[Rfam]
RNA sequence: GGAAGCGUGUGUCAAGUGAUGGCACAACUGAACAUUGAUCGCUCGUAUAUAUUAGGCAGAUCUGCUCAGUCUAGUGUUGUCACGUGGAUUUCUAGCAGCCAAGCGUCACUCCCGAUGACGUCACGCUCUCGGUCGAGUGUUGCUCUAGGCUCCUCGAAGUACCGCGGUAAUUCCAAAUUGGAUCCCCUUUGCACUUCUAUGUAAUUUGGUCGCUUCCAUUUAACGGGCACUACAGCGUAGUUUGCCAAUUUUGGUU
Numbered sequence: 001g002g003a004a005g006c007g008u009g010u011g012u013c014a015a016g017u018g019a020u021g022g023c024a025c026a027a028c029u030g031a032a033c034a035u036u037g038a039u040c041g042c043u044c045g046u047a048u049a050u051a052u053u054a055g056g057c058a059g060a061u062c063u064g065c066u067c068a069g070u071c072u073a074g075u076g077u078u079g080u081c082a083c084g085u086g087g088a089u090u091u092c093u094a095g096c097a098g099c100c101a102a103g104c105g106u107c108a109c110u111c112c113c114g115a116u117g118a119c120g121u122c123a124c125g126c127u128c129u130c131g132g133u134c135g136a137g138u139g140u141u142g143c144u145c146u147a148g149g150c151u152c153c154u155c156g157a158a159g160u161a162c163c164g165c166g167g168u169a170a171u172u173c174c175a176a177a178u179u180g181g182a183u184c185c186c187c188u189u190u191g192c193a194c195u196u197c198u199a200u201g202u203a204a205u206u207u208g209g210u211c212g213c214u215u216c217c218a219u220u221u222a223a224c225g226g227g228c229a230c231u232a233c234a235g236c237g238u239a240g241u242u243u244g245c246c247a248a249u250u251u252u253g254g255u256u
Stems, first nucleotide, its partner, number of pairs: 001217007016083005028069003033064002037062004041057003226246003229241005
Dot-bracket structure: (((((((........(((((.......(((..((..(((((((...........))).))))))..))).........)))))...............................................................................................................................)))))))........((((((((...)))))..)))..........
Source information:
The record is a 256-nucleotide RNA sequence from Nesidiocoris tenuis, which matches "Arthropod 7SK RNA" in Rfam. The organism belongs to Nesidiocoris, within Eukaryota. The family's RNA type in Rfam is non-coding RNA gene. The family's consensus secondary structure is taken from published work.